[Rfam]
RNA sequence: AUUGCUAUGAUGAGAUUAAGAACACGGGAGUGUUCUGUAGGCAGUGGACAUGAUCUAUUGGUCUUGCCGUGAGCCUUACAAUUAAACGACUUCUCCUUCCACUGAGCAGU
Numbered sequence: 001a002u003u004g005c006u007a008u009g010a011u012g013a014g015a016u017u018a019a020g021a022a023c024a025c026g027g028g029a030g031u032g033u034u035c036u037g038u039a040g041g042c043a044g045u046g047g048a049c050a051u052g053a054u055c056u057a058u059u060g061g062u063c064u065u066g067c068c069g070u071g072a073g074c075c076u077u078a079c080a081a082u083u084a085a086a087c088g089a090c091u092u093c094u095c096c097u098u099c100c101a102c103u104g105a106g107c108a109g110u
Stems, first nucleotide, its partner, number of pairs: 001110005
Dot-bracket structure: (((((....................................................................................................)))))
Annotation:
This 110-nucleotide RNA sequence from Spinacia oleracea belongs to the Rfam family "Small nucleolar RNA Z152/R70/R12/". Taxonomically the source falls in Spinacia (Eukaryota, Spermatophyta, Magnoliopsida, Anserineae). Gene Ontology terms of the family: RNA processing and nucleolus.